Record summary
Shown here is a 68-nucleotide RNA from Pegethrix bostrychoides, a member of the family "Cyano-1 RNA". A search with the family's covariance model found it, with a score of 45 bits. It is annotated as a small RNA. The organism belongs to Pegethrix bostrychoides, within Bacteria.
RNA sequence: UUAUGUGUGAGGAGCGAACCAGAGAGAGCGCCGAGACGAAACACGGAAAGUCGUCGGCGCUCUUUUUG
Numbered sequence: 001u002u003a004u005g006u007g008u009g010a011g012g013a014g015c016g017a018a019c020c021a022g023a024g025a026g027a028g029c030g031c032c033g034a035g036a037c038g039a040a041a042c043a044c045g046g047a048a049a050g051u052c053g054u055c056g057g058c059g060c061u062c063u064u065u066u067u068g
Stems, first nucleotide, its partner, number of pairs: 025063010035052003